[Rfam]
RNA sequence: AAGCACCGAGGCCACGCCGAGUAGGAUCGAGGGUACAGUAUAA
Numbered sequence: 001a002a003g004c005a006c007c008g009a010g011g012c013c014a015c016g017c018c019g020a021g022u023a024g025g026a027u028c029g030a031g032g033g034u035a036c037a038g039u040a041u042a043a
Base pairs, nucleotide, nucleotide: 003041005039006038011034012033013032015029016028017025018024